The family of this 64-nucleotide sequence from Branchiostoma lanceolatum is "Selenocysteine insertion sequence 1". The source organism's lineage runs through Eukaryota, Opisthokonta, Metazoa, Deuterostomia and Branchiostoma. Pairs were carried over by alignment from the consensus structure, which is taken from published work. Gene Ontology term of the family: selenocysteine incorporation. By type it is a cis-regulatory element. It scores 37 bits against the family's covariance model. The incorporation of selenocysteine into a protein sequence is directed by an in-frame UGA codon (usually a stop codon) within the coding region of the mRNA. Selenoprotein mRNAs contain a conserved secondary structure in the 3' UTR that is required for the distinction of UGA stop from UGA selenocysteine. The selenocysteine insertion sequence (SECIS) is around 60 nt in length and adopts a hairpin structure which is sufficiently well-defined and conserved to act as a computational screen for selenoprotein genes.
RNA sequence: GACACAAGGAUGAAAGCCUUGCAGUAAACCUAAAUAUGGUAUGCAAGGCUGGAUGUACCGUGUU
Numbered sequence: 001g002a003c004a005c006a007a008g009g010a011u012g013a014a015a016g017c018c019u020u021g022c023a024g025u026a027a028a029c030c031u032a033a034a035u036a037u038g039g040u041a042u043g044c045a046a047g048g049c050u051g052g053a054u055g056u057a058c059c060g061u062g063u064u
Stems, first nucleotide, its partner, number of pairs: 001064005015050009030039003